RNA sequence: AGCCUUCUUUAUCCGUGCUGAGAUUUCGUCACACACCUGACCACAUGGGUCGAUAAGACUCCCAAGAUAAUUGAAGCG
Numbered sequence: 001a002g003c004c005u006u007c008u009u010u011a012u013c014c015g016u017g018c019u020g021a022g023a024u025u026u027c028g029u030c031a032c033a034c035a036c037c038u039g040a041c042c043a044c045a046u047g048g049g050u051c052g053a054u055a056a057g058a059c060u061c062c063c064a065a066g067a068u069a070a071u072u073g074a075a076g077c078g
Stems, first nucleotide, its partner, number of pairs: 002077002005074002009070005016064002020061003024058003028054003

Shown here is a 78-nucleotide sequence from Schistosoma haematobium, a member of the family "mir-3492 microRNA precursor family".
The family has 2 seed sequences and 21,496 matches in Rfam 15.1.
NCBI's taxonomy places the organism under Eukaryota, Eumetazoa, Rhabditophora, Neodermata, Schistosoma.
The base pairs follow the family's consensus structure, which was predicted with RNAalifold.